[Rfam]
RNA sequence: UAGGGGGGUCGGGGCUCGGACCCCCUCCCCGAGCCUAGGGUGACCUUGACAGUGGAGGGGAC
Numbered sequence: 001u002a003g004g005g006g007g008g009u010c011g012g013g014g015c016u017c018g019g020a021c022c023c024c025c026u027c028c029c030c031g032a033g034c035c036u037a038g039g040g041u042g043a044c045c046u047u048g049a050c051a052g053u054g055g056a057g058g059g060g061a062c
Stems, first nucleotide, its partner, number of pairs: 008041003012036004016031001018029002022060006
The family of this 62-nucleotide sequence from Jaculus jaculus is "Gag/pol translational readthrough site". The base pairs follow the family's consensus structure, which is taken from published work. A search with the family's covariance model found it, with a score of 68 bits. Gene Ontology term of the family: viral translational readthrough.